[Rfam]
RNA: Small nucleolar RNA SNORA15
Organism: Jaculus jaculus
RNA sequence: GCAUGGCUGAAUACUGUGUUCUUUAGUCAGUAAUUUACACAGCCAGACACCAUGCAAAAGUAAAGUCUUCCUUUUAAAAUGAAUGAUGAUAUAUUUGGUUGUUUUUUAUGGUGUAUCAUCAUUAAUUAAAAGCAAGUACACUG
Dot-bracket structure: ((((((.......((((((.................)))))).......))))))............((.(((((((......((((((((((((..............))))))))))))....)))))))..)).......